[Rfam]
RNA sequence: GGAAGGGUGACCGACCGUGGGGAGGAAGCGUGGAGCGAACCUGCGGGCCGAUGAACAAGAACCGGAUACGAGGCAGCGCCGAGCAGGGCGAGCGGGCCAUUCGCCGCGAAGCUCUCGUGACCAAGGCGAGGCGCUGUAGAUCCGGCGGUCGUGAAGGGACGGAACGUGCUC
Number, nucleotide and partner (000 for none) at each position: 001g016002g015003a000004a000005g012006g011007g000008u000009g000010a000011c006012c005013g000014a000015c002016c001017g000018u000019g000020g000021g000022g000023a000024g000025g000026a000027a000028g171029c000030g169031u168032g167033g000034a000035g000036c162037g000038a000039a000040c157041c156042u155043g000044c153045g152046g150047g149048c148049c147050g146051a000052u000053g000054a000055a000056c000057a000058a000059g000060a000061a000062c145063c144064g143065g142066a141067u140068a000069c000070g000071a000072g000073g137074c136075a135076g000077c133078g132079c131080c130081g000082a000083g127084c000085a000086g114087g113088g112089c111090g000091a000092g107093c106094g105095g104096g000097c000098c000099a000100u000101u000102c000103g000104c095105c094106g093107c092108g000109a000110a000111g089112c088113u087114c086115u000116c000117g000118u000119g000120a000121c000122c000123a000124a000125g000126g000127c083128g000129a000130g080131g079132c078133g077134c000135u075136g074137u073138a000139g000140a067141u066142c065143c064144g063145g062146c050147g049148g048149u047150c046151g000152u045153g044154a000155a042156g041157g040158g000159a000160c000161g000162g036163a000164a000165c000166g000167u032168g031169c030170u000171c028